RNA sequence: UAUUACUAGGUUCAAAGGCAUGUGUUUCAUGUUUCCAUGUAAAAGCAUGCCUUUGAAACCCGCAAAACAUGAGAAAGUAGCCCUAUAGGGCUGAUUUUAAAUACUUUUAGGAUUGUGAAAACAUAACGUGCCAAACAAUCCACAGGCAGCA
Numbered sequence: 001u002a003u004u005a006c007u008a009g010g011u012u013c014a015a016a017g018g019c020a021u022g023u024g025u026u027u028c029a030u031g032u033u034u035c036c037a038u039g040u041a042a043a044a045g046c047a048u049g050c051c052u053u054u055g056a057a058a059c060c061c062g063c064a065a066a067a068c069a070u071g072a073g074a075a076a077g078u079a080g081c082c083c084u085a086u087a088g089g090g091c092u093g094a095u096u097u098u099a100a101a102u103a104c105u106u107u108u109a110g111g112a113u114u115g116u117g118a119a120a121a122c123a124u125a126a127c128g129u130g131c132c133a134a135a136c137a138a139u140c141c142a143c144a145g146g147c148a149g150c151a
Base pairs, nucleotide, nucleotide: 001151003149004148006146007145010059011058012057015053016052017051018050019049020048021047022046023045025043026042028039029038030037031036064108065107066105069102070101073098074097075096076095080091081090082089083088110141111140112139113138114137115136116135122130123129124128